This 143-nucleotide sequence from Cohnella endophytica belongs to the Rfam family "c-di-AMP riboswitch aptamer (ydaO/yuaA leader)". The match comes from Rfam's covariance-model search (80 bits). The source organism's lineage runs through Bacteria, Bacillati, Bacilli, Caryophanales and Cohnella.

[Rfam]
RNA sequence: AAUCAUAAACUGCCGAGUCCUCUCGAAAUGAGGAACGGGGGAACCAUUCUUUACGGGUGAAUUGGCUUUCGCUUCACAGGAGCCAUAGGGGAACCUUCUACCGAACCCUCCAGCUAACCUCGUAGGCAUUGGAAGGAGUCACC
Numbered sequence: 001a002a003u004c005a006u007a008a009a010c011u012g013c014c015g016a017g018u019c020c021u022c023u024c025g026a027a028a029u030g031a032g033g034a035a036c037g038g039g040g041g042a043a044c045c046a047u048u049c050u051u052u053a054c055g056g057g058u059g060a061a062u063u064g065g066c067u068u069u070c071g072c073u074u075c076a077c078a079g080g081a082g083c084c085a086u087a088g089g090g091g092a093a094c095c096u097u098c099u100a101c102c103g104a105a106c107c108c109u110c111c112a113g114c115u116a117a118c119c120u121c122g123u124a125g126g127c128a129u130u131g132g133a134a135g136g137a138g139u140c141a142c143c
Base pairs, nucleotide, nucleotide: 011128012127013126014125018034019033020032021031022030035123036122037121038120039119040118055108056107057106063085064084065083066082067081068080069079088102089101091099